[Rfam]
RNA: SAM-I/IV (S-adenosyl methionine) riboswitch aptamer
RNA sequence: AAUGAUCAUUAAGAGAGGACUGACGUCCCGCCAACCUGCCUUAUCCGGUAAGGUGGUAACCUCAUAUGAGGGAUGAGACCUAAGGGUAACCAAAGGAUCAUUG
Numbered sequence: 001a002a003u004g005a006u007c008a009u010u011a012a013g014a015g016a017g018g019a020c021u022g023a024c025g026u027c028c029c030g031c032c033a034a035c036c037u038g039c040c041u042u043a044u045c046c047g048g049u050a051a052g053g054u055g056g057u058a059a060c061c062u063c064a065u066a067u068g069a070g071g072g073a074u075g076a077g078a079c080c081u082a083a084g085g086g087u088a089a090c091c092a093a094a095g096g097a098u099c100a101u102u103g
Stems, first nucleotide, its partner, number of pairs: 006076005015029001017028004030057003035053003038049003043098004078087003